The record is a 71-nucleotide RNA sequence from Drosophila virilis, which matches "mir-929 microRNA precursor family" in Rfam.
The organism belongs to Drosophila, within Eukaryota.
Pairs were carried over by alignment from the consensus structure, which was predicted with RNAalifold.
Rfam 15.1 lists 147 matches to the family in 146 species.
RNA sequence: GCAGUUCAAAUUGACUCUAGUAGGGAGUCCUUUCACGAGCGACUCCCUAACGGAGUCAGAUUGAAUUACAA
Number, nucleotide and partner (000 for none) at each position: 001g000002c000003a000004g000005u000006u000007c000008a000009a000010a000011u059012u058013g057014a056015c055016u054017c053018u052019a000020g000021u049022a048023g047024g046025g045026a044027g043028u042029c041030c000031u000032u000033u000034c000035a000036c000037g000038a000039g000040c000041g029042a028043c027044u026045c025046c024047c023048u022049a021050a000051c000052g018053g017054a016055g015056u014057c013058a012059g011060a000061u000062u000063g000064a000065a000066u000067u000068a000069c000070a000071a000